[Rfam]
RNA sequence: GUUUAAAGAAUGUGACUUUUAAUUUGUAAUUCAUAUUGUUUUAUUCCUUUGCAUUGUUUUUUGAUUAAGUUUACUUUUGUUGUAGUCUAAAAAAUAUUUAAAAGACUGUAAUCAAUUUUAGGAUAUACGUAAUGAGUAAGAAAACAGGGCAAGUAAAGUGGUUUAACGAAAGCAAAGGUUUCGGUUUCAUCACUCCAGCCGAUGGUAGUAAAGAUGUAUUCGUUCACUUUUCUUCUAUUGCAGGUGAAGGAUUUAAAACUUUAGCUGAAGGACAAAAAGUUGAAUUCUCCAUUCAGGAUAGUCCGCGUGGACCAGCAGCAGCUGAAGUUGUUGUAAUAUAAGUAAAAAUAUUCAUUAGCUCAAAAUGAGUUAAAUUUAAAACCUACUUUGAAA
Numbered sequence: 001g002u003u004u005a006a007a008g009a010a011u012g013u014g015a016c017u018u019u020u021a022a023u024u025u026g027u028a029a030u031u032c033a034u035a036u037u038g039u040u041u042u043a044u045u046c047c048u049u050u051g052c053a054u055u056g057u058u059u060u061u062u063g064a065u066u067a068a069g070u071u072u073a074c075u076u077u078u079g080u081u082g083u084a085g086u087c088u089a090a091a092a093a094a095u096a097u098u099u100a101a102a103a104g105a106c107u108g109u110a111a112u113c114a115a116u117u118u119u120a121g122g123a124u125a126u127a128c129g130u131a132a133u134g135a136g137u138a139a140g141a142a143a144a145c146a147g148g149g150c151a152a153g154u155a156a157a158g159u160g161g162u163u164u165a166a167c168g169a170a171a172g173c174a175a176a177g178g179u180u181u182c183g184g185u186u187u188c189a190u191c192a193c194u195c196c197a198g199c200c201g202a203u204g205g206u207a208g209u210a211a212a213g214a215u216g217u218a219u220u221c222g223u224u225c226a227c228u229u230u231u232c233u234u235c236u237a238u239u240g241c242a243g244g245u246g247a248a249g250g251a252u253u254u255a256a257a258a259c260u261u262u263a264g265c266u267g268a269a270g271g272a273c274a275a276a277a278a279g280u281u282g283a284a285u286u287c288u289c290c291a292u293u294c295a296g297g298a299u300a301g302u303c304c305g306c307g308u309g310g311a312c313c314a315g316c317a318g319c320a321g322c323u324g325a326a327g328u329u330g331u332u333g334u335a336a337u338a339u340a341a342g343u344a345a346a347a348a349u350a351u352u353c354a355u356u357a358g359c360u361c362a363a364a365a366u367g368a369g370u371u372a373a374a375u376u377u378a379a380a381a382c383c384u385a386c387u388u389u390g391a392a393a
Base pairs, nucleotide, nucleotide: 001016002015003014004012005011025197026196028194030192038188043186045184046183047178048177049176050175056173057172058171059170062168063167065165067163069162070161071160075132076131078129079128086122087121088120089119090118091117092116133148136145137144201293202292203291204290205289213221214220224282226280227279228278229277231276233274235271236270239264242261243260246259299314301312304310315334316333317332318331319330320329321328322327338355339354341352342351343350344349361390362389363388364387366385367384369382370381371380
This 393-nucleotide RNA from Frischella perrara belongs to the Rfam family "cspA thermoregulator". The base pairs follow the family's consensus structure, which is taken from published work. The source organism's lineage runs through Bacteria, Pseudomonadati, Orbales, Orbaceae and Frischella.